Shown here is a 114-nucleotide sequence from Microcebus murinus, a member of the family "Y RNA".
Taxonomically the source falls in Microcebus (Eukaryota, Opisthokonta, Teleostomi, Primates).
Y RNAs are components of the Ro ribonucleoprotein particle (Ro RNP), in association with Ro60 and La proteins. The Y RNAs and Ro60 and La proteins are well conserved, but the function of the Ro RNP is not known.
Nucleotides: 114
Stems, first nucleotide, its partner, number of pairs: 001110008011101001014098001016093006044074001047071002
Number, partner (000 for none) and nucleotide at each position: 001110g002109g003108c004107u005106g006105g007104u008103c009000c010000c011101a012000a013000g014098g015000a016093a017092g018091u019090g020089a021088g022000u023000u024000a025000u026000c027000u028000c029000a030000c031000u032000u033000g034000a035000u036000u037000g038000u039000u040000c041000a042000c043000a044074g045000u046000g047071a048070g049000u050000u051000a052000u053000a054000g055000g056000u057000u058000g059000a060000a061000c062000u063000c064000c065000u066000u067000a068000u069000u070048c071047u072000a073000c074044u075000a076000c077000u078000u079000u080000u081000c082000a083000c084000c085000c086000u087000u088021c089020u090019c091018a092017c093016u094000a095000c096000u097000g098014c099000a100000c101011u102000u103008g104007a105006c106005u107004a108003g109002u110001c111000u112000a113000a114000a